[Rfam]
RNA sequence: ACCUUAUCGGGAACAGUGUUUCCCAUAAGCA
Numbered sequence: 001a002c003c004u005u006a007u008c009g010g011g012a013a014c015a016g017u018g019u020u021u022c023c024c025a026u027a028a029g030c031a
Stems, first nucleotide, its partner, number of pairs: 003029005009024005014018001
The family of this 31-nucleotide RNA sequence from Tinamus guttatus is "Iron response element II". Rfam's curators write: IRE, TFRC, SLC40A1, SDHB, SLC11A2, CDC42BPA, ACO2, ALAS2_H.SAPIENS, CDC14A, EPAS1, ALAS2, qoxD, Hao1, NDUFS1, transferrin, Aconitate. The family's RNA type in Rfam is cis-regulatory element. For this family Rfam cites "Molecular cloning of mouse glycolate oxidase. High evolutionary conservation and presence of an iron-responsive element-like sequence in the mRNA" (Kohler et al., J Biol Chem, 1999). Rfam links the family to the GO term response to iron ion. Lineage of the source: Eukaryota > Metazoa > Chordata > Amniota > Tinamus. Pairs were carried over by alignment from the consensus structure, which is taken from published work.